RNA sequence: CAGGAGAAUGCCGAAAAUCCUUUAAAGAGUAGGCA
Number, nucleotide and partner (000 for none) at each position: 001c000002a021003g020004g019005a018006g000007a000008a000009u000010g034011c033012c032013g000014a000015a000016a000017a000018u005019c004020c003021u002022u000023u000024a000025a000026a000027g000028a000029g000030u000031a000032g012033g011034c010035a000

A member of the RNA family "DUF805b RNA", 35 nucleotides long. Rfam's curators put it in the seed alignment. Clan: DUF805 clan.